[Rfam]
RNA sequence: ACCCGGAUGGUGGAAUUGGUAGACACGCCGGACUUAAAAUCCUGUUCUCCGCAAGGGGAGUGACGGUUCAACUCCGUUUCCGGGUA
Numbered sequence: 001a002c003c004c005g006g007a008u009g010g011u012g013g014a015a016u017u018g019g020u021a022g023a024c025a026c027g028c029c030g031g032a033c034u035u036a037a038a039a040u041c042c043u044g045u046u047c048u049c050c051g052c053a054a055g056g057g058g059a060g061u062g063a064c065g066g067u068u069c070a071a072c073u074c075c076g077u078u079u080c081c082g083g084g085u086a
Base pairs, nucleotide, nucleotide: 001085002084003083004082005081006080007079010026011025012024028044030042031041032040062078063077064076065075066074